[Rfam]
RNA: TPP riboswitch aptamer (THI element)
RNA sequence: GAAUAAAAAACGGGGAGUUAGUUAAACUAUCUGAGAGGAAAUUUGUAAUUUCGACCCAUAACCUGAUUUGGAUAAUGCCAACGUAGGGAAAUAUAUUAUAAAGAAA
Number, nucleotide and partner (000 for none) at each position: 001g000002a000003a000004u000005a000006a094007a000008a092009a000010a000011c000012g057013g056014g055015g000016a000017g031018u000019u029020a028021g027022u000023u000024a000025a000026a000027c021028u020029a019030u000031c017032u000033g000034a000035g000036a000037g000038g052039a051040a050041a049042u048043u000044u000045g000046u000047a000048a042049u041050u040051u039052c038053g000054a000055c014056c013057c012058a000059u000060a000061a000062c087063c086064u085065g084066a000067u000068u081069u080070g079071g078072a000073u000074a000075a000076u000077g000078c071079c070080a069081a068082c000083g000084u065085a064086g063087g062088g000089a000090a000091a000092u008093a000094u006095a000096u000097u000098a000099u000100a000101a000102a000103g000104a000105a000106a000